[Rfam]
A member of the RNA family "ROOL RNA", 612 nucleotides long. Firmicutes, Fusobacteria (1 example), Tenericutes (1 example). Rfam classes the family as a small RNA. The base pairs follow the family's consensus structure, which is taken from published work.

RNA sequence: UCUGAAUAUCUUCAUAAUCACAAACCGUGUGCAUAAAGCCCCUGACAGGGCUUCACGGACUGACGUGUGACGGAACGCCACGGAUAUGACCGAUAGGGCAUUGAAGUAACAGAGCGUCUGGGAUGAUGGUAACUGAAUUUCGGGGAGUACGUAAGACACUUGGUACAACUCCAGAGCGUCAGGUGGGAUAGAAGGAUGAGGGAAAAGGCAUGGUGUUAGGGACUGUUCCUGUAUAAUAGACGACCACGGUGUGGGAAUAACCCGUGAAUAUCAUAAGGCUUUGCGGGCUUAUGGGGAUAGCGGGAAAUAUGCAGGCGGGAAAUGUGCGGCUGAGACGGGGGAAACUUCGGGUAUAAAGUCUGACACCUGUACACUGGCACAAGUCCGUACAAAUUUCUUAUUAUAGAGUGAAUAAUAAUAAAUCUGAAUGUUGUGCUGGUGCUGUGGGUAUAAAAGAAUCCCAUGCGUACUAGGCUGAACCGAAAGGUUCAGUUCGUAAGGAAGUGUAGGCGGUAGCUCCCCUAUGCUCAGACCUUGCGAUACGGUGGCUGAAAAUUCCUGUGUCCUUUGAAGAUACGCUGAAUAAAAGGCGUGUGGUUGUGGAGAUGUUCA
Numbered sequence: 001u002c003u004g005a006a007u008a009u010c011u012u013c014a015u016a017a018u019c020a021c022a023a024a025c026c027g028u029g030u031g032c033a034u035a036a037a038g039c040c041c042c043u044g045a046c047a048g049g050g051c052u053u054c055a056c057g058g059a060c061u062g063a064c065g066u067g068u069g070a071c072g073g074a075a076c077g078c079c080a081c082g083g084a085u086a087u088g089a090c091c092g093a094u095a096g097g098g099c100a101u102u103g104a105a106g107u108a109a110c111a112g113a114g115c116g117u118c119u120g121g122g123a124u125g126a127u128g129g130u131a132a133c134u135g136a137a138u139u140u141c142g143g144g145g146a147g148u149a150c151g152u153a154a155g156a157c158a159c160u161u162g163g164u165a166c167a168a169c170u171c172c173a174g175a176g177c178g179u180c181a182g183g184u185g186g187g188a189u190a191g192a193a194g195g196a197u198g199a200g201g202g203a204a205a206a207g208g209c210a211u212g213g214u215g216u217u218a219g220g221g222a223c224u225g226u227u228c229c230u231g232u233a234u235a236a237u238a239g240a241c242g243a244c245c246a247c248g249g250u251g252u253g254g255g256a257a258u259a260a261c262c263c264g265u266g267a268a269u270a271u272c273a274u275a276a277g278g279c280u281u282u283g284c285g286g287g288c289u290u291a292u293g294g295g296g297a298u299a300g301c302g303g304g305a306a307a308u309a310u311g312c313a314g315g316c317g318g319g320a321a322a323u324g325u326g327c328g329g330c331u332g333a334g335a336c337g338g339g340g341g342a343a344a345c346u347u348c349g350g351g352u353a354u355a356a357a358g359u360c361u362g363a364c365a366c367c368u369g370u371a372c373a374c375u376g377g378c379a380c381a382a383g384u385c386c387g388u389a390c391a392a393a394u395u396u397c398u399u400a401u402u403a404u405a406g407a408g409u410g411a412a413u414a415a416u417a418a419u420a421a422a423u424c425u426g427a428a429u430g431u432u433g434u435g436c437u438g439g440u441g442c443u444g445u446g447g448g449u450a451u452a453a454a455a456g457a458a459u460c461c462c463a464u465g466c467g468u469a470c471u472a473g474g475c476u477g478a479a480c481c482g483a484a485a486g487g488u489u490c491a492g493u494u495c496g497u498a499a500g501g502a503a504g505u506g507u508a509g510g511c512g513g514u515a516g517c518u519c520c521c522c523u524a525u526g527c528u529c530a531g532a533c534c535u536u537g538c539g540a541u542a543c544g545g546u547g548g549c550u551g552a553a554a555a556u557u558c559c560u561g562u563g564u565c566c567u568u569u570g571a572a573g574a575u576a577c578g579c580u581g582a583a584u585a586a587a588a589g590g591c592g593u594g595u596g597g598u599u600g601u602g603g604a605g606a607u608g609u610u611c612a
Stems, first nucleotide, its partner, number of pairs: 011605003017599001019597001025058005037052005060182006076116003086101003090097002117144005123138002128133001147166004191593001192569004201560002204557001207556001208550001212367003220361005225323003229319002244254004261304005271294004277289003282313004325389005336349005372441001377436006423532004447462002466544003499536003504528001506525003510521001512520002577592004